[Rfam]
RNA: mir-8364 microRNA precursor family
RNA sequence: UCUUCAUUUCACGUUCUCUCUUACCGGUCAGAAUUACGAGAGAGCACGCAAAAUGAAGAGA
Numbered sequence: 001u002c003u004u005c006a007u008u009u010c011a012c013g014u015u016c017u018c019u020c021u022u023a024c025c026g027g028u029c030a031g032a033a034u035u036a037c038g039a040g041a042g043a044g045c046a047c048g049c050a051a052a053a054u055g056a057a058g059a060g061a
Stems, first nucleotide, its partner, number of pairs: 001059007012048003016044002019041004